Rfam assigns this 60-nucleotide RNA from Capsicum annuum to the family "Plastid-psbA-4 3UTR RNA". The source organism's lineage runs through Eukaryota, Viridiplantae, asterids, Solanoideae and Capsicum. About the family: Plastid psbA-4 is a non-coding RNA (ncRNA) present in plastids. It was identified in inverted repeat sequences in the 3 prime untranslate region (3UTR) of photosystem II quinone-binding protein (psbA). Clan: Plastid-psbA 3UTR RNA clan.
RNA sequence: AAAAGAAAGGAGCAAUAGCACCCUCUUGAUAAAACAAGAAAAUGACUAUUGCUCCUUUCU
Numbered sequence: 001a002a003a004a005g006a007a008a009g010g011a012g013c014a015a016u017a018g019c020a021c022c023c024u025c026u027u028g029a030u031a032a033a034a035c036a037a038g039a040a041a042a043u044g045a046c047u048a049u050u051g052c053u054c055c056u057u058u059c060u
Stems, first nucleotide, its partner, number of pairs: 006058012020043001024039005